[Rfam]
RNA sequence: GCCGGGUUCAGUAGCGUGAACCUAUAACUCAAGUGGGGGCAUGAAUGUGCUGGAACAUUAACUUGGUUCUGGUUGGCCGGGUGCUAAUCUGGCUUCUUAACUGGCUCGCCCAUUCCAAGCCAGGAGUUGAGCCCUGGGACUUGAGCGAAGGCUGUGGGUCUCGUGGCUCCUAGAGAAGAGGGCAUUGCGUGAGGCUGGAUUCACAGAGCAGCGACAACCUCUCCCUCCUGGCAGUGGAAGGAAAACGAGCUAGUGCCAAUCACACACCCAACAUGGCCUUCUGGGCUGAUCUCAAUUGAACCAGCACUUUU
Dot-bracket structure: ((((((((((......)))))))....(((....))))))..(((.(((((((..(((.(..(((((.((((..(((((((((....(.(((.(......((((((((.((.(((((.((((((((..(((((.((((((((((((....))).))))))))).)))))(....).(((((......(((....(((......)))....)))....)))))..))))))))..)))))))....)))))))).))))).....))))).....))))..)))))))))..).)..))..))))))).)))
Plant signal recognition particle RNA: a 311-nucleotide RNA sequence from Castanea mollissima. Lineage of the source: Eukaryota > Spermatophyta > Mesangiospermae > Fagales > Castanea. The base pairs follow the family's consensus structure, which is taken from published work. The family is grouped with related families in Rfam's "SRP clan". The match comes from Rfam's covariance-model search (236 bits). Its family is annotated with signal recognition particle, endoplasmic reticulum targeting and SRP-dependent cotranslational protein targeting to membrane, signal sequence recognition in the Gene Ontology. By type it is a non-coding RNA gene. The literature on the family includes a 2000 paper in Science by Batey et al., "Crystal structure of the ribonucleoprotein core of the signal recognition particle".